[Rfam]
RNA: Selenocysteine transfer RNA
RNA sequence: GGAGGCGUCUCCGGCCUGGUGGCCGGCGCGGUCUUCAAAACCGUCGGGUGGCAGACGCUGUCGCCGGCGGGUUCGAUUCCCGUCCGCCUCC
Numbered sequence: 001g002g003a004g005g006c007g008u009c010u011c012c013g014g015c016c017u018g019g020u021g022g023c024c025g026g027c028g029c030g031g032u033c034u035u036c037a038a039a040a041c042c043g044u045c046g047g048g049u050g051g052c053a054g055a056c057g058c059u060g061u062c063g064c065c066g067g068c069g070g071g072u073u074c075g076a077u078u079c080c081c082g083u084c085c086g087c088c089u090c091c
Stems, first nucleotide, its partner, number of pairs: 001091007011026006028044005047065005068082004